[Rfam]
A member of the RNA family "TPP riboswitch aptamer (THI element)" from Arenibacter certesii, 98 nucleotides long.
RNA sequence: UUGAAAUGCGUGGGGUGUUCUGAAAAAUUCAGGACUGAGAACAAACCCAAAAACCUGAUUUGGAUAAUGCCAACGUAGGGAUGCAUACAUAGGAUACG
Number, nucleotide and partner (000 for none) at each position: 001u000002u000003g000004a000005a000006a086007u085008g084009c083010g082011u049012g048013g047014g046015g000016u043017g035018u034019u033020c032021u031022g030023a029024a000025a000026a000027a000028u000029u023030c022031a021032g020033g019034a018035c017036u000037g000038a000039g000040a000041a000042c000043a016044a000045a000046c014047c013048c012049a011050a000051a000052a000053a000054c079055c078056u077057g076058a000059u000060u073061u072062g071063g070064a000065u000066a000067a000068u000069g000070c063071c062072a061073a060074c000075g000076u057077a056078g055079g054080g000081a000082u010083g009084c008085a007086u006087a000088c000089a000090u000091a000092g000093g000094a000095u000096a000097c000098g000
The match comes from Rfam's covariance-model search (67 bits). Its family is annotated with thiamine pyrophosphate binding in the Gene Ontology. Taxonomically the source falls in Arenibacter (Bacteria, Pseudomonadati, Flavobacteriia, Flavobacteriaceae).